Rfam assigns this 378-nucleotide sequence from Rhodovulum sp. BSW8 to the family "Bacterial RNase P class A". The match comes from Rfam's covariance-model search (298 bits).
[Rfam]
RNA sequence: GCGGAUGGCUGGAUGGCCGCGGGGGUGCAAGCCUUCGAGGAAAGUCCGGACUCCACGAAGCGACGGUGCCGGGUAACGCCCGGCGGGGGAAACCCCAGGGAAAGCGCCACAGAGAACAGACCGCCUCCGGUCUCGGAGGUAAGGGUGAAACGGUGGGGUAAGAGCCCACCGCGGGCCUGGCAACAGGACCGGCACGGCAAGCCCCACCGGGAGCAAUGCCGAAUAGGGACCCCGCGCAGGCUGGACCUGCAGGGCGGCUUCGGCCCAGGGGUCCGGGUUGGCAGCUUGAGCGUAUCGGUAACGGUACGCCCAGAGGAAUGGUCAUCCAGGGGGCCUCGCGCCCCCGGACAGAAUCCGGCUUACAGGCCAUCCGCGCAU
Numbered sequence: 001g002c003g004g005a006u007g008g009c010u011g012g013a014u015g016g017c018c019g020c021g022g023g024g025g026u027g028c029a030a031g032c033c034u035u036c037g038a039g040g041a042a043a044g045u046c047c048g049g050a051c052u053c054c055a056c057g058a059a060g061c062g063a064c065g066g067u068g069c070c071g072g073g074u075a076a077c078g079c080c081c082g083g084c085g086g087g088g089g090a091a092a093c094c095c096c097a098g099g100g101a102a103a104g105c106g107c108c109a110c111a112g113a114g115a116a117c118a119g120a121c122c123g124c125c126u127c128c129g130g131u132c133u134c135g136g137a138g139g140u141a142a143g144g145g146u147g148a149a150a151c152g153g154u155g156g157g158g159u160a161a162g163a164g165c166c167c168a169c170c171g172c173g174g175g176c177c178u179g180g181c182a183a184c185a186g187g188a189c190c191g192g193c194a195c196g197g198c199a200a201g202c203c204c205c206a207c208c209g210g211g212a213g214c215a216a217u218g219c220c221g222a223a224u225a226g227g228g229a230c231c232c233c234g235c236g237c238a239g240g241c242u243g244g245a246c247c248u249g250c251a252g253g254g255c256g257g258c259u260u261c262g263g264c265c266c267a268g269g270g271g272u273c274c275g276g277g278u279u280g281g282c283a284g285c286u287u288g289a290g291c292g293u294a295u296c297g298g299u300a301a302c303g304g305u306a307c308g309c310c311c312a313g314a315g316g317a318a319u320g321g322u323c324a325u326c327c328a329g330g331g332g333g334c335c336u337c338g339c340g341c342c343c344c345c346g347g348a349c350a351g352a353a354u355c356c357g358g359c360u361u362a363c364a365g366g367c368c369a370u371c372c373g374c375g376c377a378u
Base pairs, nucleotide, nucleotide: 001374002373003372004371005370006369007368008367009366010365011363012326013325014324015323016322017321018320020037021036022035023034024033025032026031042361043360044359046358047357048356049355050354051213052212053211054210060260062258064209065208066207067206068205069083070082071081072080073079084098085096086095087094088093099204100203104202105201106198107197108196121144122143123140124139125138126137127136128135129134152170153169154168155167156166157165171193172191173190174189176187177186178185179184217283218282219281220280227274228273229272230271231270232269252266253265254264255263290309291308292307293306294305295304296303297302